Rfam assigns this 101-nucleotide sequence from Conger conger to the family "Vault RNA". It is annotated as a non-coding RNA gene. The literature on the family includes a 2009 paper in Mol Biol Evol by Stadler et al., "Evolution of Vault RNAs". From the family's description: This family of RNAs are found as part of the enigmatic vault ribonucleoprotein complex. A search with the family's covariance model found it, with a score of 44 bits.
RNA sequence: GCGUCGGCUUAGCUCAGUGGUUACUUUGUUGUUAAUCUUUCACUUUCGCCAAACCCUGCCUUCUCCGGAAGGUCGAACCGCAGGCCCUGUCUGGUGUUUUG
Number, nucleotide and partner (000 for none) at each position: 001g000002c096003g095004u094005c093006g092007g091008c000009u000010u000011a000012g085013c084014u083015c000016a000017g081018u080019g079020g078021u000022u000023a000024c000025u077026u076027u075028g074029u000030u000031g000032u000033u000034a000035a000036u000037c000038u000039u000040u000041c000042a000043c000044u000045u000046u000047c000048g000049c000050c000051a000052a000053a000054c000055c000056c000057u000058g000059c000060c000061u000062u000063c000064u000065c000066c000067g000068g000069a000070a000071g000072g000073u000074c028075g027076a026077a025078c020079c019080g018081c017082a000083g014084g013085c012086c000087c000088u000089g000090u000091c007092u006093g005094g004095u003096g002097u000098u000099u000100u000101g000